RNA sequence: CUUGGCGUCCUGCUUGCGCUCCUUGAUGGCGUUGCCGACGGCAUGCAGCAGGUGGGUCUUGCCCAGACCGGUGCCGCCAUA
Numbered sequence: 001c002u003u004g005g006c007g008u009c010c011u012g013c014u015u016g017c018g019c020u021c022c023u024u025g026a027u028g029g030c031g032u033u034g035c036c037g038a039c040g041g042c043a044u045g046c047a048g049c050a051g052g053u054g055g056g057u058c059u060u061g062c063c064c065a066g067a068c069c070g071g072u073g074c075c076g077c078c079a080u081a
Stems, first nucleotide, its partner, number of pairs: 005042002010037001012035002016032003020029002051078004056074002061072003

About this RNA:
Rfam assigns this 81-nucleotide RNA from Aeromonas hydrophila to the family "antisense RNA of dnaA mRNA". The literature on the family includes a 2013 paper in PLoS One by Dadzie et al., "Identification and characterization of a cis-encoded antisense RNA associated with the replication process of Salmonella enterica serovar Typhi". The source organism's lineage runs through Bacteria, Pseudomonadati, Pseudomonadota, Aeromonadales and Aeromonas hydrophila subsp. hydrophila. Its family is annotated with regulation of mRNA stability in the Gene Ontology. It scores 70 bits against the family's covariance model.